RNA sequence: UGCCAUGAUGAGUUAAUUUGCGCCCGAUAGCAAGGCUGGUGACAGACGCCUACUGUCAAACAAGCCGCCCUGCCGAUGUGACGAUCACAGCUCUAAGCA
Numbered sequence: 001u002g003c004c005a006u007g008a009u010g011a012g013u014u015a016a017u018u019u020g021c022g023c024c025c026g027a028u029a030g031c032a033a034g035g036c037u038g039g040u041g042a043c044a045g046a047c048g049c050c051u052a053c054u055g056u057c058a059a060a061c062a063a064g065c066c067g068c069c070c071u072g073c074c075g076a077u078g079u080g081a082c083g084a085u086c087a088c089a090g091c092u093c094u095a096a097g098c099a
Stems, first nucleotide, its partner, number of pairs: 001099003021083002024080001030073003034069001039065002041057005

A member of the RNA family "Small nucleolar RNA SNORD16" from Acanthaster planci, 99 nucleotides long.
The base pairs follow the family's consensus structure, which was predicted with PFOLD.